[Rfam]
RNA: Eukaryotic large subunit ribosomal RNA, nucleotides 3425 to 3745
Organism: Bodo saltans
RNA sequence: GGGAAUUGCGAGAAAAAGAUUAUUCGCGCAAAGCGAACGCGGGUCGUUUUGGACUCGUGCGUGGCGGCGUGUACUUGGUAGCGUCGUCUAAAACAACUGUGUUGUGAAACCGAAUCAAUUCUUUACGGGAUUGUGAAGGGAUCUCGCAGGUAUCGUGAGGGAAGUAUGGGGUAGUACGAGAGGAACUCCCAUGCCGUGCCUCUGGUUUCUGGGGUUUGUCGAAAGGCAAGUGCCCCGAAGCUAUCGCACGGUGGUUCUCGGCUGAACGCCUCUAAGCCAGAAGCCAAUCCCAAGACCAGAUGCCCAACAACAAAACCUGGU
Numbered sequence: 001g002g003g004a005a006u007u008g009c010g011a012g013a014a015a016a017a018g019a020u021u022a023u024u025c026g027c028g029c030a031a032a033g034c035g036a037a038c039g040c041g042g043g044u045c046g047u048u049u050u051g052g053a054c055u056c057g058u059g060c061g062u063g064g065c066g067g068c069g070u071g072u073a074c075u076u077g078g079u080a081g082c083g084u085c086g087u088c089u090a091a092a093a094c095a096a097c098u099g100u101g102u103u104g105u106g107a108a109a110c111c112g113a114a115u116c117a118a119u120u121c122u123u124u125a126c127g128g129g130a131u132u133g134u135g136a137a138g139g140g141a142u143c144u145c146g147c148a149g150g151u152a153u154c155g156u157g158a159g160g161g162a163a164g165u166a167u168g169g170g171g172u173a174g175u176a177c178g179a180g181a182g183g184a185a186c187u188c189c190c191a192u193g194c195c196g197u198g199c200c201u202c203u204g205g206u207u208u209c210u211g212g213g214g215u216u217u218g219u220c221g222a223a224a225g226g227c228a229a230g231u232g233c234c235c236c237g238a239a240g241c242u243a244u245c246g247c248a249c250g251g252u253g254g255u256u257c258u259c260g261g262c263u264g265a266a267c268g269c270c271u272c273u274a275a276g277c278c279a280g281a282a283g284c285c286a287a288u289c290c291c292a293a294g295a296c297c298a299g300a301u302g303c304c305c306a307a308c309a310a311c312a313a314a315a316c317c318u319g320g321u
Stems, first nucleotide, its partner, number of pairs: 149304006159291004164194008195250005203243003210237005215230006252286003260278004